[Rfam]
Background: This 79-nucleotide sequence from Fischerella sp. PCC 9339 belongs to the Rfam family "CyVA-1 RNA". Rfam describes the family as follows. Cyanobacteria, Acidobacteria (1 example), Verrucomicrobia (1 example). The source organism's lineage runs through Bacteria, Cyanobacteriota, Nostocales, Hapalosiphonaceae and Fischerella. It is one of the family's seed sequences.

RNA sequence: GCACUGGCAGAACGUUAAACCGCUCAAGUUCUUUAUAUGUAGUCACCAUCAAAAGCGAUGCUAAAACUACCGACAGUGC
Dot-bracket structure: ((((((..((((................))))......(((((......................)))))...))))))